The family of this 70-nucleotide sequence is "RAGATH-18 RNA". Rfam's curators write: Actinobacteria, Firmicutes, Fusobacteria, Thermotogae (1 example). By type it is a small RNA.

[Rfam]
RNA sequence: CCUUUGGAGAAGCAAUCAAACUAGAGUAGAUACUUUAAAAGUAACAAAAUAGGUUUCGAUGAAUUAGGAA
Numbered sequence: 001c002c003u004u005u006g007g008a009g010a011a012g013c014a015a016u017c018a019a020a021c022u023a024g025a026g027u028a029g030a031u032a033c034u035u036u037a038a039a040a041g042u043a044a045c046a047a048a049a050u051a052g053g054u055u056u057c058g059a060u061g062a063a064u065u066a067g068g069a070a
Base pairs, nucleotide, nucleotide: 001068002067003066009057010056011055012054013053021052022051023050029045031043033041034040